About this RNA:
The family of this 77-nucleotide RNA from Alligator sinensis is "Mammalian CPEB3 ribozyme". The organism belongs to Alligator, within Eukaryota. The base pairs follow the family's consensus structure, which is taken from published work. A search with the family's covariance model found it, with a score of 48 bits. Rfam's curators write: The mammalian CPEB3 ribozyme is a self cleaving RNA located in the second intron of the CPEB3 gene which belongs to a family of genes regulating messenger RNA polyadenylation. This ribozyme is highly conserved and found only in mammals.
[Rfam]
RNA sequence: GGUUGCAAGUUAGAGGCCAUAGCAGAAGCACUCACGGCAUGGCCCUGUCAGAUCCCAGCAAAUCUGCGAAUUCUGCU
Numbered sequence: 001g002g003u004u005g006c007a008a009g010u011u012a013g014a015g016g017c018c019a020u021a022g023c024a025g026a027a028g029c030a031c032u033c034a035c036g037g038c039a040u041g042g043c044c045c046u047g048u049c050a051g052a053u054c055c056c057a058g059c060a061a062a063u064c065u066g067c068g069a070a071u072u073c074u075g076c077u
Stems, first nucleotide, its partner, number of pairs: 013045001015044004021077007028040001049066005
Dot-bracket structure: ............[.[[[[..((((((((...........)]]]]]...(((((........)))))....)))))))